RNA sequence: AUGAAUUCUCAGGGCGGGGCGAAAUUCCCCACCGGCGGUGAUCUUCUUGUGAAGAAAGCCCGCGAGCGCUUAUUCAACCUGAUUUCAGGCGAGUAAGGUCAGCAGAUCUGGUGCCGUAUGUAGCCCUUACAUACCUAUUCCAGAGCCGACGGUCAUAGUCCGGAUGAAAGAGGAUUUCA
Numbered sequence: 001a002u003g004a005a006u007u008c009u010c011a012g013g014g015c016g017g018g019g020c021g022a023a024a025u026u027c028c029c030c031a032c033c034g035g036c037g038g039u040g041a042u043c044u045u046c047u048u049g050u051g052a053a054g055a056a057a058g059c060c061c062g063c064g065a066g067c068g069c070u071u072a073u074u075c076a077a078c079c080u081g082a083u084u085u086c087a088g089g090c091g092a093g094u095a096a097g098g099u100c101a102g103c104a105g106a107u108c109u110g111g112u113g114c115c116g117u118a119u120g121u122a123g124c125c126c127u128u129a130c131a132u133a134c135c136u137a138u139u140c141c142a143g144a145g146c147c148g149a150c151g152g153u154c155a156u157a158g159u160c161c162g163g164a165u166g167a168a169a170g171a172g173g174a175u176u177u178c179a
Stems, first nucleotide, its partner, number of pairs: 003177008017029003031159002033148002035063004058146002066103002107144005150162003